[Rfam]
Nucleotides: 095
Base pairs, nucleotide, nucleotide: 001095002094003093004092005091010083011082012081013080014079016077017076018075019073020072021071025054026053028052029051030050031049033047034046038089039088040087041086042085058070059069060068061067
Number, partner (000 for none) and nucleotide at each position: 001095u002094u003093g004092a005091g006000a007000g008000u009000a010083g011082g012081g013080u014079a015000u016077a017076c018075g019073c020072g021071u022000u023000a024000a025054g026053u027000g028052c029051c030050a031049g032000g033047a034046g035000a036000c037000g038089g039088a040087a041086u042085g043000u044000u045000g046034c047033u048000g049031c050030u051029g052028g053026a054025c055000g056000a057000a058070g059069g060068a061067c062000u063000g064000u065000g066000u067061g068060u069059u070058c071021g072020u073019g074000g075018u076017g077016u078000c079014u080013g081012c082011c083010c084000g085042c086041a087040u088039u089038c090000g091005c092004u093003c094002a095001a
Rfam assigns this 95-nucleotide sequence from Aerococcus urinaehominis to the family "THF (Tetrahydrofolate) riboswitch aptamer". NCBI's taxonomy places the organism under Bacteria, Bacillota, Bacilli, Aerococcaceae, Aerococcus. Its family is annotated with tetrahydrofolate metabolic process in the Gene Ontology. Rfam describes the family as follows. Tetrahydrofolate (THF) riboswitch was first reported for Ames et al. as an RNA motif in 5' untranslated (5'-UTR)regions of folate transport and biosynthesis genes in Firmicutes genomes. For this family Rfam cites "A eubacterial riboswitch class that senses the coenzyme tetrahydrofolate" (Ames et al., Chem Biol, 2010).